[Rfam]
RNA: caulobacter sRNA CC2171
RNA sequence: UAACAACUGAAAGGAGGUGAUCCAGUGUCUCAUUGUCAUCAACCGCUGGUGCAAGGCGGUCGGACCUGGACUUCUUCUACCUGGGGCCCUUGUUCCGCGUGAGUUUUCGCACCUUCAGGCCCGGUUCGCCGGGUCGCGGUUCGACAAUGGAAGGGCUGCCCUCGCGGGCGGCCCU
Numbered sequence: 001u002a003a004c005a006a007c008u009g010a011a012a013g014g015a016g017g018u019g020a021u022c023c024a025g026u027g028u029c030u031c032a033u034u035g036u037c038a039u040c041a042a043c044c045g046c047u048g049g050u051g052c053a054a055g056g057c058g059g060u061c062g063g064a065c066c067u068g069g070a071c072u073u074c075u076u077c078u079a080c081c082u083g084g085g086g087c088c089c090u091u092g093u094u095c096c097g098c099g100u101g102a103g104u105u106u107u108c109g110c111a112c113c114u115u116c117a118g119g120c121c122c123g124g125u126u127c128g129c130c131g132g133g134u135c136g137c138g139g140u141u142c143g144a145c146a147a148u149g150g151a152a153g154g155g156c157u158g159c160c161c162u163c164g165c166g167g168g169c170g171g172c173c174c175u
Stems, first nucleotide, its partner, number of pairs: 016023002031149007044084001048081004085094003095124003098119001100118001101112001103110002129139003152175010